About this RNA: This 185-nucleotide RNA sequence from Alkalicoccus urumqiensis belongs to the Rfam family "Lysine riboswitch aptamer". NCBI's taxonomy places the organism under Bacteria, Bacillota, Bacilli, Caryophanales, Alkalicoccus. Gene Ontology term of the family: lysine biosynthetic process.

[Rfam]
RNA sequence: AGUGAGUGUAGAGGCGCAUCUGCUAUCAGUAAACUGUUUUAGGAGAAGGGACUCCGGGUAGAGCAGUUGAAAGGAGAAGAUGCCGAAGCAGAACAGCAUCCCCUGCCGUUCUGUUGGGACUGUGUUUAAGAAGCACAGUACUGUCGUACAGCUGAAAUCCGGCUGUAUGGAGGGCUAUCUCACGC
Numbered sequence: 001a002g003u004g005a006g007u008g009u010a011g012a013g014g015c016g017c018a019u020c021u022g023c024u025a026u027c028a029g030u031a032a033a034c035u036g037u038u039u040u041a042g043g044a045g046a047a048g049g050g051a052c053u054c055c056g057g058g059u060a061g062a063g064c065a066g067u068u069g070a071a072a073g074g075a076g077a078a079g080a081u082g083c084c085g086a087a088g089c090a091g092a093a094c095a096g097c098a099u100c101c102c103c104u105g106c107c108g109u110u111c112u113g114u115u116g117g118g119a120c121u122g123u124g125u126u127u128a129a130g131a132a133g134c135a136c137a138g139u140a141c142u143g144u145c146g147u148a149c150a151g152c153u154g155a156a157a158u159c160c161g162g163c164u165g166u167a168u169g170g171a172g173g174g175c176u177a178u179c180u181c182a183c184g185c
Stems, first nucleotide, its partner, number of pairs: 006180001008178004016083006023076002032068008087115008096106003116142002119139008144170010